RNA sequence: GUCGGGGUGCACCGGUACCUGAAAGCAAAGGCUGUAAAGGGGCUCCGAUGUCGGGGGAAACCCUCCUGCCCAAUGCGGGAUAGAGCGAAAGACAACCGGCAAAACGAAAGCGCCAGCAAUGGCGCUUUCGUCGU
Numbered sequence: 001g002u003c004g005g006g007g008u009g010c011a012c013c014g015g016u017a018c019c020u021g022a023a024a025g026c027a028a029a030g031g032c033u034g035u036a037a038a039g040g041g042g043c044u045c046c047g048a049u050g051u052c053g054g055g056g057g058a059a060a061c062c063c064u065c066c067u068g069c070c071c072a073a074u075g076c077g078g079g080a081u082a083g084a085g086c087g088a089a090a091g092a093c094a095a096c097c098g099g100c101a102a103a104a105c106g107a108a109a110g111c112g113c114c115a116g117c118a119a120u121g122g123c124g125c126u127u128u129c130g131u132c133g134u
Stems, first nucleotide, its partner, number of pairs: 002048007014019001032039002050093003054063003064080006104131011
Rfam assigns this 134-nucleotide RNA sequence from Mangrovibacter sp. MFB070 to the family "sraL Hfq binding RNA".
By type it is a small RNA.
Lineage of the source: Bacteria > Pseudomonadota > Enterobacterales > Enterobacteriaceae > Mangrovibacter.
A search with the family's covariance model found it, with a score of 79 bits.
Gene Ontology term of the family: negative regulation of gene expression.
Rfam describes the family as follows. The SraL RNA ('sra' for small RNA), discovered in E. coli, and later in Salmonella Tiphimurium. It is expressed only in stationary phase. It may possibly play a role in Salmonella virulence.